[Rfam]
RNA sequence: GUGCUCACAAAAACACUUAUCCUGCCACGUGGCUGAGAUGGGUUCUGUGAAAAUGUGAGCUAGAUCAGUGUAUUGCUUUGGGAGUGUCACAUUCCAGAGCACGUGUGACACUACAGUUUUCAAUACAACA
Numbered sequence: 001g002u003g004c005u006c007a008c009a010a011a012a013a014c015a016c017u018u019a020u021c022c023u024g025c026c027a028c029g030u031g032g033c034u035g036a037g038a039u040g041g042g043u044u045c046u047g048u049g050a051a052a053a054u055g056u057g058a059g060c061u062a063g064a065u066c067a068g069u070g071u072a073u074u075g076c077u078u079u080g081g082g083a084g085u086g087u088c089a090c091a092u093u094c095c096a097g098a099g100c101a102c103g104u105g106u107g108a109c110a111c112u113a114c115a116g117u118u119u120u121c122a123a124u125a126c127a128a129c130a
Base pairs, nucleotide, nucleotide: 003060004059005058006057007056008055012044013043014042018040019039020038021037025032026031070126072124073123074122075121078116079115080114083112084111085110086109087108088107089106090105092101094099
This 130-nucleotide RNA from Piaya cayana belongs to the Rfam family "Small Cajal body specific RNA 23". It is annotated as a small Cajal body RNA. A reference for the family is Darzacq et al. (2002), "Cajal body-specific small nuclear RNAs: a novel class of 2'-O-methylation and pseudouridylation guide RNAs", EMBO J. About the family: scaRNAs are a specific class of small nuclear RNAs which localise to the Cajal bodies and guide the modification of RNA polymerase II transcribed spliceosomal RNAs U1, U2, U4, U5 and U12.